[Rfam]
RNA: Selenocysteine transfer RNA
Organism: Brevibacterium mcbrellneri
RNA sequence: GGAGGCGUCCGGGUCCUGGUGGGCCCCGCAGUCUUCAAAACUGUUGAAACCGAGUAGCUCGGUUUGGCGGGUUCGAUUCCCGUCCGCCUCC
Numbered sequence: 001g002g003a004g005g006c007g008u009c010c011g012g013g014u015c016c017u018g019g020u021g022g023g024c025c026c027c028g029c030a031g032u033c034u035u036c037a038a039a040a041c042u043g044u045u046g047a048a049a050c051c052g053a054g055u056a057g058c059u060c061g062g063u064u065u066g067g068c069g070g071g072u073u074c075g076a077u078u079c080c081c082g083u084c085c086g087c088c089u090c091c
Stems, first nucleotide, its partner, number of pairs: 001091007011026006028044005047065005068082004